[Rfam]
RNA sequence: GUCAAUAACCCACCGCUAAUCGGAGUACCAAUAUAGCGGGGGCUUGUAAAAGCCCUAGUUGACCAGGCUCAGGUAGAAAUACCUCCGUUGUAGGGAAGCGUUAAAGUUCACACCUUAGAAUGCGUAGCUAGUUCUAAGCUCUGUAAUCUCAAUAUUAAUUAGCCAUUUGGGAGGCAGGUGUAUUGAGAAAGUACCAACCUACAACAUUGCCGAAGCUAACAUUAC
Numbered sequence: 001g002u003c004a005a006u007a008a009c010c011c012a013c014c015g016c017u018a019a020u021c022g023g024a025g026u027a028c029c030a031a032u033a034u035a036g037c038g039g040g041g042g043c044u045u046g047u048a049a050a051a052g053c054c055c056u057a058g059u060u061g062a063c064c065a066g067g068c069u070c071a072g073g074u075a076g077a078a079a080u081a082c083c084u085c086c087g088u089u090g091u092a093g094g095g096a097a098g099c100g101u102u103a104a105a106g107u108u109c110a111c112a113c114c115u116u117a118g119a120a121u122g123c124g125u126a127g128c129u130a131g132u133u134c135u136a137a138g139c140u141c142u143g144u145a146a147u148c149u150c151a152a153u154a155u156u157a158a159u160u161a162g163c164c165a166u167u168u169g170g171g172a173g174g175c176a177g178g179u180g181u182a183u184u185g186a187g188a189a190a191g192u193a194c195c196a197a198c199c200u201a202c203a204a205c206a207u208u209g210c211c212g213a214a215g216c217u218a219a220c221a222u223u224a225c
Base pairs, nucleotide, nucleotide: 001063002062003061004060005059006058008056010042011041013039014038015037016036017035018034043052044051045050066211067210068209071084072083073082074081075080087205088204089203090202091201092200100198101197102196110144111143114138115137116136117135118134119133120132121131125218126217127216128215129214147188148187149186150185151184152183153182154181155180160178162175163174164173166171
RNA: HNH endonuclease-associated RNA and ORF (HEARO) RNA